[Rfam]
RNA sequence: GUCAGAAAAAGGCAAACCUAUUGAAAAAUGGGGACGCAAAGCCGUGGAUCUAAGGUAGAAAUGCUAUGAUAGCCGGGCUGCCUGA
Numbered sequence: 001g002u003c004a005g006a007a008a009a010a011g012g013c014a015a016a017c018c019u020a021u022u023g024a025a026a027a028a029u030g031g032g033g034a035c036g037c038a039a040a041g042c043c044g045u046g047g048a049u050c051u052a053a054g055g056u057a058g059a060a061a062u063g064c065u066a067u068g069a070u071a072g073c074c075g076g077g078c079u080g081c082c083u084g085a
Stems, first nucleotide, its partner, number of pairs: 012037002017032006040079004045075003048070003055064003
c-di-GMP-I riboswitch aptamer: an 85-nucleotide RNA sequence from Bacillus sp. MRMR6.
The family's consensus secondary structure is taken from published work.